[Rfam]
RNA sequence: CCGUCCGAGGGGCGCUGCAGCAAACCCUGUGCAACAGGACUUUGUCAGGCUCGGAUGGGGCGUUAACCAUACGCAUCAACGGCGCCCAUUCGAC
Numbered sequence: 001c002c003g004u005c006c007g008a009g010g011g012g013c014g015c016u017g018c019a020g021c022a023a024a025c026c027c028u029g030u031g032c033a034a035c036a037g038g039a040c041u042u043u044g045u046c047a048g049g050c051u052c053g054g055a056u057g058g059g060g061c062g063u064u065a066a067c068c069a070u071a072c073g074c075a076u077c078a079a080c081g082g083c084g085c086c087c088a089u090u091c092g093a094c
Base pairs, nucleotide, nucleotide: 002057003056004055005054006053007052008051021044022043023042024041
RNA: SAH (S-adenosyl-L-homocysteine) riboswitch aptamer